This 147-nucleotide RNA from Paenibacillus foliorum belongs to the Rfam family "c-di-AMP riboswitch aptamer (ydaO/yuaA leader)".

RNA sequence: UUGAAUAAAAAGCCGAAUUUCUUUUCGAAAACGGGGGAACCAUUGUAAUAGGGGUGAAUUCAAUUCCAUCGUACACCACGGUGGAGUGAUAGGGUACCUGUAAGCCCGAAUCCGUCAGCUAACCUCGUAGGCUUAAUAACAGGACCC
Numbered sequence: 001u002u003g004a005a006u007a008a009a010a011a012g013c014c015g016a017a018u019u020u021c022u023u024u025u026c027g028a029a030a031a032c033g034g035g036g037g038a039a040c041c042a043u044u045g046u047a048a049u050a051g052g053g054g055u056g057a058a059u060u061c062a063a064u065u066c067c068a069u070c071g072u073a074c075a076c077c078a079c080g081g082u083g084g085a086g087u088g089a090u091a092g093g094g095u096a097c098c099u100g101u102a103a104g105c106c107c108g109a110a111u112c113c114g115u116c117a118g119c120u121a122a123c124c125u126c127g128u129a130g131g132c133u134u135a136a137u138a139a140c141a142g143g144a145c146c147c
Stems, first nucleotide, its partner, number of pairs: 011133004018030003031128006041051001052113003060089003092107004
Dot-bracket structure: ..........((((...(((.......)))((((((....(.........)(((.....(((........................)))..((((........))))...))).........)))))).))))..............
Lineage of the source: Bacteria > Bacillati > Caryophanales > Paenibacillaceae > Paenibacillus.
From the family's description: This family represents a conserved RNA structure found upstream of the ydaO and yuaA genes in Bacillus subtilis and related genes in other bacteria.